[Rfam]
RNA: SAH (S-adenosyl-L-homocysteine) riboswitch aptamer
RNA sequence: UGCUUUGAGGGGCGCUGCAGCAGCUUUUUCGUCUGUCAGGCUCAAAGUAGGAAGCAGCAUUCAACGGCGCCCGUUCAAC
Numbered sequence: 001u002g003c004u005u006u007g008a009g010g011g012g013c014g015c016u017g018c019a020g021c022a023g024c025u026u027u028u029u030c031g032u033c034u035g036u037c038a039g040g041c042u043c044a045a046a047g048u049a050g051g052a053a054g055c056a057g058c059a060u061u062c063a064a065c066g067g068c069g070c071c072c073g074u075u076c077a078a079c
Base pairs, nucleotide, nucleotide: 002048003047004046005045006044007043008042021035022034023033025031